[Rfam]
RNA sequence: UAGACUCUAGCUGACUAAGGCGCUUCUCUUUCUAAAAAGAGCGCUUUACUUAGCCAGUGUAGACAU
Dot-bracket structure: ...((.((.((((...(((((((((.(.......)...)))))))))...)))).)).))......
Source information
Shown here is a 66-nucleotide RNA from Monodelphis domestica, a member of the family "mir-1251 microRNA precursor family". The family has 7 seed sequences and 134 matches in Rfam 15.1. The match comes from Rfam's covariance-model search (86 bits). Rfam links the family to the GO terms miRNA-mediated post-transcriptional gene silencing and RISC complex. For this family Rfam cites "Mammalian microRNAs: experimental evaluation of novel and previously annotated genes" (Chiang et al., Genes Dev, 2010).